[Rfam]
RNA sequence: GUGCGGUCAUAAAAAGCGAAAUUUUUUGAACGUUGGCUAUGUCAACGAAGCCGUCAGGAGCGAGCAAAUUUGUUUACAAAACUGCGAAUAAUUUUUUAAAAG
Numbered sequence: 001g002u003g004c005g006g007u008c009a010u011a012a013a014a015a016g017c018g019a020a021a022u023u024u025u026u027u028g029a030a031c032g033u034u035g036g037c038u039a040u041g042u043c044a045a046c047g048a049a050g051c052c053g054u055c056a057g058g059a060g061c062g063a064g065c066a067a068a069u070u071u072g073u074u075u076a077c078a079a080a081a082c083u084g085c086g087a088a089u090a091a092u093u094u095u096u097u098a099a100a101a102g
Stems, first nucleotide, its partner, number of pairs: 010028007031047007051058002064085003069080004089098003